The record is a 106-nucleotide RNA sequence from a Pseudonocardiaceae bacterium, which matches "mraW RNA" in Rfam. Rfam 15.1 lists 851 matches to the family in 821 species.
[Rfam]
RNA sequence: AUGAGCGGAUGCGGUGAGGCCUCGGUCCGCAGAUCGGCCCUGGCGCACCUUCCCCGGCGCCAAGUUCGGCGAGCGGGCUGAGACCUCACCGCAUCCGCGGCUUUCU
Numbered sequence: 001a002u003g004a005g006c007g008g009a010u011g012c013g014g015u016g017a018g019g020c021c022u023c024g025g026u027c028c029g030c031a032g033a034u035c036g037g038c039c040c041u042g043g044c045g046c047a048c049c050u051u052c053c054c055c056g057g058c059g060c061c062a063a064g065u066u067c068g069g070c071g072a073g074c075g076g077g078c079u080g081a082g083a084c085c086u087c088a089c090c091g092c093a094u095c096c097g098c099g100g101c102u103u104u105c106u
Stems, first nucleotide, its partner, number of pairs: 010093007018085002021082010034069004039064001041062006
The match comes from Rfam's covariance-model search (62 bits). The base pairs follow the family's consensus structure, which is taken from published work.